[Rfam]
RNA sequence: AGAUCAAUGAUGAGUCCCUUAGAAUGCACUUCUUGGAAAAGCUGAACAAAAUGAGUGAGAACUCCAACCGUUGUUCUCAUCGGAUCUGAGGUCC
Dot-bracket structure: .((((.....................(((((.(((...........)))...)))))................................)))).